Record summary
c-di-AMP riboswitch aptamer (ydaO/yuaA leader): a 144-nucleotide RNA from Bacillus gobiensis. About the family: This family represents a conserved RNA structure found upstream of the ydaO and yuaA genes in Bacillus subtilis and related genes in other bacteria. Rfam links the family to the GO terms cyclic-di-AMP binding and regulation of gene expression. The match comes from Rfam's covariance-model search (81 bits).

RNA sequence: AUACUACACUCGUUUAAUCCUUUUUUGAAGGAAUGGGGGACCCAAAAUCAUUACGGGGUGAAUUUUUAUACGUUUUAUGUAUAAAAACGGACAUCUCUUCGUCCGAACCCGACAGCUAACCCCGUAUACGUGAAGAGAGUCAUA
Numbered sequence: 001a002u003a004c005u006a007c008a009c010u011c012g013u014u015u016a017a018u019c020c021u022u023u024u025u026u027g028a029a030g031g032a033a034u035g036g037g038g039g040a041c042c043c044a045a046a047a048u049c050a051u052u053a054c055g056g057g058g059u060g061a062a063u064u065u066u067u068a069u070a071c072g073u074u075u076u077a078u079g080u081a082u083a084a085a086a087a088c089g090g091a092c093a094u095c096u097c098u099u100c101g102u103c104c105g106a107a108c109c110c111g112a113c114a115g116c117u118a119a120c121c122c123c124g125u126a127u128a129c130g131u132g133a134a135g136a137g138a139g140u141c142a143u144a
Stems, first nucleotide, its partner, number of pairs: 011130003018032003033125006043055001056110003064086010089104004